[Rfam]
RNA sequence: CCUCGAUAAAGGCAAACCCGUGGUAACGCGGGGACGCAAAGCCAGUGCCCCACCGCAUAGCGAGGGUCGAACGGUUACCGAA
Numbered sequence: 001c002c003u004c005g006a007u008a009a010a011g012g013c014a015a016a017c018c019c020g021u022g023g024u025a026a027c028g029c030g031g032g033g034a035c036g037c038a039a040a041g042c043c044a045g046u047g048c049c050c051c052a053c054c055g056c057a058u059a060g061c062g063a064g065g066g067u068c069g070a071a072c073g074g075u076u077a078c079c080g081a082a
Stems, first nucleotide, its partner, number of pairs: 012037002017032006040076004045072002049066002055061002
The family of this 82-nucleotide RNA sequence from Alteromonadaceae bacterium 2753L.S.0a.02 is "c-di-GMP-I riboswitch aptamer".
A search with the family's covariance model found it, with a score of 62 bits.
About the family: GEMM was predicted in a large-scale screen for bacterial structured RNA regulatory elements.
The source organism's lineage runs through Bacteria, Pseudomonadota, Gammaproteobacteria, Alteromonadales and Alteromonadaceae.
The base pairs follow the family's consensus structure, which is taken from published work.